Shown here is a 126-nucleotide RNA from Otolemur garnettii, a member of the family "U4atac minor spliceosomal RNA". Rfam's curators write: U4atac is an essential component of the minor U12-type spliceosome complex which is required for removal of the rarer class of eukaryotic introns (AT-AC, U12-type).
RNA sequence: AACAUCCUUUUCUUAGGGUUGUGCUACUGUCCAAUGAGCGCAUAGUGAGGGCAGUUCCGCUAACACCUACACAACACGCUUGCAUCAACUAGAACUUUGCUUUAUACUGGUGUAAUUUCUGGAAAA
Numbered sequence: 001a002a003c004a005u006c007c008u009u010u011u012c013u014u015a016g017g018g019u020u021g022u023g024c025u026a027c028u029g030u031c032c033a034a035u036g037a038g039c040g041c042a043u044a045g046u047g048a049g050g051g052c053a054g055u056u057c058c059g060c061u062a063a064c065a066c067c068u069a070c071a072c073a074a075c076a077c078g079c080u081u082g083c084a085u086c087a088a089c090u091a092g093a094a095c096u097u098u099g100c101u102u103u104a105u106a107c108u109g110g111u112g113u114a115a116u117u118u119c120u121g122g123a124a125a126a
Stems, first nucleotide, its partner, number of pairs: 006018004021060003026055007038046002082113006090104004095099001
Gene Ontology terms of the family: spliceosomal tri-snRNP complex assembly, U4atac snRNP and mRNA 5'-splice site recognition.
The organism belongs to Otolemur, within Eukaryota.
The match comes from Rfam's covariance-model search (103 bits).
Clan: U4 clan.